The record is a 112-nucleotide sequence from Dermacoccus sp. 147Ba, which matches "SAM (S-adenosyl methionine) riboswitch aptamer" in Rfam. The base pairs follow the family's consensus structure, which is taken from published work. About the family: SAM-IV is a mRNA element that regulates gene expression via direct sensing of S-adenosylmethionine (SAM or AdoMet). A search with the family's covariance model found it, with a score of 81 bits. Lineage of the source: Bacteria > Bacillati > Actinomycetes > Dermacoccaceae > Dermacoccus.
[Rfam]
RNA sequence: UGUCAAGAGAUCCGAUGCAAAGCCCUGGCUGGUCGGACGGCAACCCUCACGAACGUGGCGGGGUGCUCCAGGUGAUGACACGGCCGCGUCAACCGCGCGGCAAGCACGUUCC
Numbered sequence: 001u002g003u004c005a006a007g008a009g010a011u012c013c014g015a016u017g018c019a020a021a022g023c024c025c026u027g028g029c030u031g032g033u034c035g036g037a038c039g040g041c042a043a044c045c046c047u048c049a050c051g052a053a054c055g056u057g058g059c060g061g062g063g064u065g066c067u068c069c070a071g072g073u074g075a076u077g078a079c080a081c082g083g084c085c086g087c088g089u090c091a092a093c094c095g096c097g098c099g100g101c102a103a104g105c106a107c108g109u110u111c112c
Base pairs, nucleotide, nucleotide: 001080002079003078004077009038011037012036013035014034015033016032021030022029039067040066041065044063045062046061048058050057083101084100085099086098087097088096090095